[Rfam]
RNA sequence: CUCUUAUCCAGAGUGGCGGAGGGACUGGCCCUGCGAAGCCCGGCAACCAUCAAACCAUAUGUUAGUCAGUGAGUUUGAACGGUGCUAAUUCCUGUGAAAUACGAUUGUAUUUUAACAGAUGAGAG
Numbered sequence: 001c002u003c004u005u006a007u008c009c010a011g012a013g014u015g016g017c018g019g020a021g022g023g024a025c026u027g028g029c030c031c032u033g034c035g036a037a038g039c040c041c042g043g044c045a046a047c048c049a050u051c052a053a054a055c056c057a058u059a060u061g062u063u064a065g066u067c068a069g070u071g072a073g074u075u076u077g078a079a080c081g082g083u084g085c086u087a088a089u090u091c092c093u094g095u096g097a098a099a100u101a102c103g104a105u106u107g108u109a110u111u112u113u114a115a116c117a118g119a120u121g122a123g124a125g
Stems, first nucleotide, its partner, number of pairs: 001125008013041001015040003021031003025094001027092002042086004047082002050078006090117001095114006
A member of the RNA family "SAM riboswitch aptamer (S box leader)" from Priestia veravalensis, 125 nucleotides long.
Gene Ontology term of the family: regulation of gene expression.
A reference for the family is Lu et al. (2010), "SAM recognition and conformational switching mechanism in the Bacillus subtilis yitJ S box/SAM-I riboswitch", J Mol Biol.
Taxonomically the source falls in Priestia (Bacteria, Bacillota, Caryophanales, Bacillaceae).